[Rfam]
RNA sequence: CCAAUACCGGGAGCAGCCAACUUGGAUUUAUCCAAUUGGUUUACUGCCGGCUACAGCGGGGGAGACAUAUAUCACAGCGUGUCUCAUGCCCGGCCCCGCUGGUUUAUGUUUUGCCUACUCCUACUAUCCGUAGGGGUAGGCAUUUACCUGCUCCCCAACCGAUGA
Numbered sequence: 001c002c003a004a005u006a007c008c009g010g011g012a013g014c015a016g017c018c019a020a021c022u023u024g025g026a027u028u029u030a031u032c033c034a035a036u037u038g039g040u041u042u043a044c045u046g047c048c049g050g051c052u053a054c055a056g057c058g059g060g061g062g063a064g065a066c067a068u069a070u071a072u073c074a075c076a077g078c079g080u081g082u083c084u085c086a087u088g089c090c091c092g093g094c095c096c097c098g099c100u101g102g103u104u105u106a107u108g109u110u111u112u113g114c115c116u117a118c119u120c121c122u123a124c125u126a127u128c129c130g131u132a133g134g135g136g137u138a139g140g141c142a143u144u145u146a147c148c149u150g151c152u153c154c155c156c157a158a159c160c161g162a163u164g165a
Stems, first nucleotide, its partner, number of pairs: 007050004012045002016041001018039001020037001022035005055100007062085006112142013

Rfam assigns this 165-nucleotide RNA from Orthohepacivirus hominis to the family "Hepatitis C virus (HCV) cis-acting replication element (CRE)".
The family's RNA type in Rfam is cis-regulatory element.
Taxonomically the source falls in Orthohepacivirus (Viruses, Riboviria, Orthornavirae, Hepaciviridae).
Gene Ontology term of the family: viral genome replication.